RNA sequence: CAGCCACAGAAUAGCUUAUUCUAUGGCCACCUGAAUUUACUAUCAUGAUUCUACUGAUUUUACAAGACUGUGAAUACAUAUUUAUGAUACAAAUGUGUUACCAUAACUAGUGAUGAUAUUUACCAUCAUCUGAUAGUAAAUCACUUGAGGGUAGUGCAGUAAAUCUCUGCAUUUGUUAUGGUAAAUAGAUGAUGAUAAAUAUCAUCACUAGUGAUAGUAAUAUACUUGUAUCGUAAAUAUGUAUCCACAGUCUCGUAAAAUCAGUAGAAUCGUGAUAGUAAAUUCAGGUGGCCAUAGAAUAAGCUAUUCUGUGGCUG
Numbered sequence: 001c002a003g004c005c006a007c008a009g010a011a012u013a014g015c016u017u018a019u020u021c022u023a024u025g026g027c028c029a030c031c032u033g034a035a036u037u038u039a040c041u042a043u044c045a046u047g048a049u050u051c052u053a054c055u056g057a058u059u060u061u062a063c064a065a066g067a068c069u070g071u072g073a074a075u076a077c078a079u080a081u082u083u084a085u086g087a088u089a090c091a092a093a094u095g096u097g098u099u100a101c102c103a104u105a106a107c108u109a110g111u112g113a114u115g116a117u118a119u120u121u122a123c124c125a126u127c128a129u130c131u132g133a134u135a136g137u138a139a140a141u142c143a144c145u146u147g148a149g150g151g152u153a154g155u156g157c158a159g160u161a162a163a164u165c166u167c168u169g170c171a172u173u174u175g176u177u178a179u180g181g182u183a184a185a186u187a188g189a190u191g192a193u194g195a196u197a198a199a200u201a202u203c204a205u206c207a208c209u210a211g212u213g214a215u216a217g218u219a220a221u222a223u224a225c226u227u228g229u230a231u232c233g234u235a236a237a238u239a240u241g242u243a244u245c246c247a248c249a250g251u252c253u254c255g256u257a258a259a260a261u262c263a264g265u266a267g268a269a270u271c272g273u274g275a276u277a278g279u280a281a282a283u284u285c286a287g288g289u290g291g292c293c294a295u296a297g298a299a300u301a302a303g304c305u306a307u308u309c310u311g312u313g314g315c316u317g
Stems, first nucleotide, its partner, number of pairs: 001317033037281011051267013066254002068250003072245002081237005093229003097225002099219003103215002106212004111204005